[Rfam]
Rfam assigns this 102-nucleotide RNA sequence from Aneurinibacillus migulanus to the family "Purine riboswitch aptamer".
Taxonomically the source falls in Aneurinibacillus (Bacteria, Bacillati, Bacilli, Caryophanales).
The match comes from Rfam's covariance-model search (83 bits).
The family's consensus secondary structure is taken from published work.
Rfam describes the family as follows. Riboswitches are metabolite binding domains within certain messenger RNAs that serve as precision sensors for their corresponding targets.
RNA sequence: ACUACUACAUCUAAAUGACCUCAUAUAAUAUCGGGGAUACGGCCUGAAAGUUUCUACCGAACCGCCGUAAAUGGUUCGACUAUGAGGACAGAUACCUAUGCC
Numbered sequence: 001a002c003u004a005c006u007a008c009a010u011c012u013a014a015a016u017g018a019c020c021u022c023a024u025a026u027a028a029u030a031u032c033g034g035g036g037a038u039a040c041g042g043c044c045u046g047a048a049a050g051u052u053u054c055u056a057c058c059g060a061a062c063c064g065c066c067g068u069a070a071a072u073g074g075u076u077c078g079a080c081u082a083u084g085a086g087g088a089c090a091g092a093u094a095c096c097u098a099u100g101c102c
Stems, first nucleotide, its partner, number of pairs: 019087007029049001031047005058078007